The family of this 186-nucleotide sequence from Desulforapulum autotrophicum is "Group II catalytic intron D1-D4-7". About the family: Group II introns are found in rRNA, tRNA and mRNA of organelles in fungi, plants and protists, and also in mRNA in bacteria. It is one of the family's seed sequences. Pairs were carried over by alignment from the consensus structure. On this family, see Bonen and Vogel, Trends Genet 2001: "The ins and outs of group II introns".
RNA sequence: CCUGCCGUAUCACCGGCAGUUUCUUACCCCGGCAUGCAUUACUGGUAACGGUUUUGUAUGAAGCCCGGGGGACAAUGAAGCCCGGGGGACAAUGAAGCCCGGGGGACAAUGAAGCCCUUGGUCGAAAGACCUGGAGAGCAAGUCUUGAGGCAAGCUCAACUCUGGCAGCAUCAAGCCGGUUGGGAG
Numbered sequence: 001c002c003u004g005c006c007g008u009a010u011c012a013c014c015g016g017c018a019g020u021u022u023c024u025u026a027c028c029c030c031g032g033c034a035u036g037c038a039u040u041a042c043u044g045g046u047a048a049c050g051g052u053u054u055u056g057u058a059u060g061a062a063g064c065c066c067g068g069g070g071g072a073c074a075a076u077g078a079a080g081c082c083c084g085g086g087g088g089a090c091a092a093u094g095a096a097g098c099c100c101g102g103g104g105g106a107c108a109a110u111g112a113a114g115c116c117c118u119u120g121g122u123c124g125a126a127a128g129a130c131c132u133g134g135a136g137a138g139c140a141a142g143u144c145u146u147g148a149g150g151c152a153a154g155c156u157c158a159a160c161u162c163u164g165g166c167a168g169c170a171u172c173a174a175g176c177c178g179g180u181u182g183g184g185a186g
Stems, first nucleotide, its partner, number of pairs: 002019006028069005033060006041052004083134001085132003136157004143150002162179005